[Rfam]
RNA sequence: UAUCACUAAGGAAUGUUUUUCUCGCCAUAUUUUUCCGGCGAGAGACGGAAAGGAUUCGAACCCGCCAACACAGGCAGGUUUAGAUUGAUAACAAUUAAAGGACAAG
Numbered sequence: 001u002a003u004c005a006c007u008a009a010g011g012a013a014u015g016u017u018u019u020u021c022u023c024g025c026c027a028u029a030u031u032u033u034u035c036c037g038g039c040g041a042g043a044g045a046c047g048g049a050a051a052g053g054a055u056u057c058g059a060a061c062c063c064g065c066c067a068a069c070a071c072a073g074g075c076a077g078g079u080u081u082a083g084a085u086u087g088a089u090a091a092c093a094a095u096u097a098a099a100g101g102a103c104a105a106g
Stems, first nucleotide, its partner, number of pairs: 020043007060079003064075003
RNA: gltS RNA